Overview
A member of the RNA family "Small nucleolar RNA SNORD19" from Hymenochirus boettgeri, 78 nucleotides long. The base pairs follow the family's consensus structure. Rfam links the family to the GO terms nucleolus and RNA processing. The family is grouped with related families in Rfam's "SNORD19 clan". It scores 50 bits against the family's covariance model. On this family, see Huttenhofer et al., EMBO J 2001: "RNomics: an experimental approach that identifies 201 candidates for novel, small, non-messenger RNAs in mouse".

RNA sequence: GAGAAAUGAGGAAACUCUUGAAAGUCUGAUGUUGUAACUAUGACGACCGUCAGAUCCAACUCUGAUCUCCAUUCGUCU
Number, nucleotide and partner (000 for none) at each position: 001g069002a068003g067004a066005a000006a000007u000008g000009a000010g000011g000012a000013a000014a000015c000016u000017c000018u000019u000020g000021a000022a000023a000024g000025u000026c000027u000028g000029a000030u000031g000032u000033u000034g000035u000036a000037a000038c000039u000040a000041u000042g000043a000044c000045g000046a000047c000048c000049g000050u000051c000052a000053g000054a000055u000056c000057c000058a000059a000060c000061u000062c000063u000064g000065a000066u004067c003068u002069c001070c000071a000072u000073u000074c000075g000076u000077c000078u000